[Rfam]
RNA sequence: CGAGGUGUUCACGGGAGUCCGGUAGUCCGGGCUGAGAGGAAGGCACAAGCCUUCGACCGUCAAACCUGAUCUGGGUAAUGCCAGCGCAGGGAGGCACAUCUCCGAGCAGA
Numbered sequence: 001c002g003a004g005g006u007g008u009u010c011a012c013g014g015g016a017g018u019c020c021g022g023u024a025g026u027c028c029g030g031g032c033u034g035a036g037a038g039g040a041a042g043g044c045a046c047a048a049g050c051c052u053u054c055g056a057c058c059g060u061c062a063a064a065c066c067u068g069a070u071c072u073g074g075g076u077a078a079u080g081c082c083a084g085c086g087c088a089g090g091g092a093g094g095c096a097c098a099u100c101u102c103c104g105a106g107c108a109g110a
Stems, first nucleotide, its partner, number of pairs: 006098003010094001011060004017032005039054005065090004071084004
A member of the RNA family "TPP riboswitch aptamer (THI element)" from Pseudoclavibacter sp. RFBA6, 110 nucleotides long. Pairs were carried over by alignment from the consensus structure, which is taken from published work.